[Rfam]
RNA sequence: AACCCCCCACGUGGCGCCAUCUCGCCGAACCUCCCCAGGGCCGGAAGGCAGCAAGGAUAAGCGAGCUCUGUCGGGUACGUGGGGGGCCUUU
Numbered sequence: 001a002a003c004c005c006c007c008c009a010c011g012u013g014g015c016g017c018c019a020u021c022u023c024g025c026c027g028a029a030c031c032u033c034c035c036c037a038g039g040g041c042c043g044g045a046a047g048g049c050a051g052c053a054a055g056g057a058u059a060a061g062c063g064a065g066c067u068c069u070g071u072c073g074g075g076u077a078c079g080u081g082g083g084g085g086g087c088c089u090u091u
Stems, first nucleotide, its partner, number of pairs: 001090002005086001006083006012075001015073002018070002021065005032057003040049003
A member of the RNA family "Bacterial small signal recognition particle RNA" from Nocardioides baekrokdamisoli, 91 nucleotides long. It scores 59 bits against the family's covariance model. Lineage of the source: Bacteria > Bacillati > Propionibacteriales > Nocardioidaceae > Nocardioides. It is annotated as a non-coding RNA gene. The signal recognition particle (SRP) is a universally conserved ribonucleoprotein involved in the co-translational targeting of proteins to membranes.